Nucleotides: 201
Stems, first nucleotide, its partner, number of pairs: 015059005061104001063102002066099001069093004074088003122195013135153006
Number, partner (000 for none) and nucleotide at each position: 001000a002000c003000a004000c005000g006000a007000g008000a009000a010000g011000g012000g013000a014000g015059g016058u017057g018056g019055u020000u021000c022000g023000g024000a025000c026000u027000a028000a029000u030000g031000a032000g033000u034000g035000a036000a037000u038000a039000c040000c041000g042000g043000a044000c045000g046000c047000g048000u049000g050000a051000g052000g053000u054000g055019a056018c057017u058016g059015c060000g061104g062000c063102c064101u065000a066099g067000g068000g069093g070092c071091c072090g073000a074088c075087g076086u077000c078000a079000c080000a081000g082000c083000g084000u085000g086076a087075u088074g089000c090072c091071g092070g093069c094000c095000a096000c097000c098000g099066c100000c101064g102063g103000c104061c105000a106000a107000u108000c109000c110000c111000g112000a113000g114000c115000a116000g117000u118000c119000a120000c121000c122195c123194g124193a125192c126191c127190c128189g129188c130187g131186g132185g133184c134183u135153g136152u137151c138150g139149g140148u141000a142000c143000g144000u145000c146000c147000g148140a149139c150138c151137g152136a153135c154000c155000c156000c157000c158000u159000u160000c161000g162000c163000g164000u165000c166000u167000c168000a169000c170000g171000c172000g173000a174000c175000c176000g177000g178000g179000g180000c181000c182000a183134g184133g185132c186131c187130c188129g189128c190127g191126g192125g193124u194123c195122g196000c197000c198000u199000g200000c201000g
This 201-nucleotide sequence from Streptomyces carminius belongs to the Rfam family "Actinobacteria sRNA Ms_IGR-5". Pairs were carried over by alignment from the consensus structure. It is annotated as a small RNA. Lineage of the source: Bacteria > Actinomycetota > Actinomycetes > Kitasatosporales > Streptomyces. For this family Rfam cites "Identification of small RNAs in Mycobacterium smegmatis using heterologous Hfq" (Li et al., RNA, 2013).